Notes: Small nucleolar RNA snoR99: a 117-nucleotide RNA from Lactuca saligna. The literature on the family includes a 2002 paper in Curr Biol by Marker et al., "Experimental RNomics: identification of 140 candidates for small non-messenger RNAs in the plant Arabidopsis thaliana". Gene Ontology terms of the family: RNA processing and nucleolus.

RNA sequence: UUGCUUUAGGGAUGGAAUGAUGUCCCCUGAUAUUCACUUCACCCUCUUCACUUUGUCAGCGAUUUCAUUAGUCUAGCUAGUUUUACAAGUUGCUGAUCAUUUAUGGGUGGGAGAUCU
Numbered sequence: 001u002u003g004c005u006u007u008a009g010g011g012a013u014g015g016a017a018u019g020a021u022g023u024c025c026c027c028u029g030a031u032a033u034u035c036a037c038u039u040c041a042c043c044c045u046c047u048u049c050a051c052u053u054u055g056u057c058a059g060c061g062a063u064u065u066c067a068u069u070a071g072u073c074u075a076g077c078u079a080g081u082u083u084u085a086c087a088a089g090u091u092g093c094u095g096a097u098c099a100u101u102u103a104u105g106g107g108u109g110g111g112a113g114a115u116c117u
Stems, first nucleotide, its partner, number of pairs: 038111006055097011